[Rfam]
RNA sequence: GCAACCUGAAGCUCGCCCACGGCAACAUCGUGGUGUUCCGCUCGCUCCUGGGCAUCAGCUGGAUGUGGUUCUUCGGGGCGGUGUUCCUCAGCCAGUUCCCCUCCUUCGCCAAGGAGGUGCUG
Numbered sequence: 001g002c003a004a005c006c007u008g009a010a011g012c013u014c015g016c017c018c019a020c021g022g023c024a025a026c027a028u029c030g031u032g033g034u035g036u037u038c039c040g041c042u043c044g045c046u047c048c049u050g051g052g053c054a055u056c057a058g059c060u061g062g063a064u065g066u067g068g069u070u071c072u073u074c075g076g077g078g079c080g081g082u083g084u085u086c087c088u089c090a091g092c093c094a095g096u097u098c099c100c101c102u103c104c105u106u107c108g109c110c111a112a113g114g115a116g117g118u119g120c121u122g
Stems, first nucleotide, its partner, number of pairs: 010049002014044002018040001021037004026032001051121005059113002062110001063105001065103001067099002071095002077089002080087002

This 122-nucleotide sequence from Ramlibacter monticola belongs to the Rfam family "Burkholderia RNA 11". It scores 92 bits against the family's covariance model. The base pairs follow the family's consensus structure, which was predicted with RNAfold. It is annotated as a small RNA. Gene Ontology term of the family: protein binding.